[Rfam]
RNA sequence: CCCUAUCUCCAGAUACUCCAAUAUUGGAGUAAUAAUAAUUAAUAAUAAUAAUACUCCAAUAUUGGAGUAUCUGGAGAUAGGG
Numbered sequence: 001c002c003c004u005a006u007c008u009c010c011a012g013a014u015a016c017u018c019c020a021a022u023a024u025u026g027g028a029g030u031a032a033u034a035a036u037a038a039u040u041a042a043u044a045a046u047a048a049u050a051a052u053a054c055u056c057c058a059a060u061a062u063u064g065g066a067g068u069a070u071c072u073g074g075a076g077a078u079a080g081g082g
Stems, first nucleotide, its partner, number of pairs: 001082003005078003011072008020063010

Source information:
Rfam assigns this 82-nucleotide sequence from Neogale vison to the family "mir-16 microRNA precursor family". Clan: mir-15 clan. The organism belongs to Neogale, within Eukaryota.